The family of this 59-nucleotide RNA sequence from Salmo salar is "mir-203 microRNA precursor family".
NCBI's taxonomy places the organism under Eukaryota, Opisthokonta, Euteleostomi, Salmoniformes, Salmo.
Rfam 15.1 lists 1,049 matches to the family in 464 species.
Gene Ontology terms of the family: RISC complex and miRNA-mediated post-transcriptional gene silencing.
The family's consensus secondary structure was predicted with RNAalifold.
The literature on the family includes a 2005 paper in Genes Dev by Chen et al., "The developmental miRNA profiles of zebrafish as determined by small RNA cloning".
RNA sequence: AGUGGUUCUUGACAGUUCAACAGUCUUUACCAAAAUUGUGAAAUGUUUAGGACCACUCG
Numbered sequence: 001a002g003u004g005g006u007u008c009u010u011g012a013c014a015g016u017u018c019a020a021c022a023g024u025c026u027u028u029a030c031c032a033a034a035a036u037u038g039u040g041a042a043a044u045g046u047u048u049a050g051g052a053c054c055a056c057u058c059g
Base pairs, nucleotide, nucleotide: 001057002056003055004054005053006052008050009049011047012046013045014044016042017041018040019039
Dot-bracket structure: ((((((.((.((((.((((...................)))).)))).)).))))))..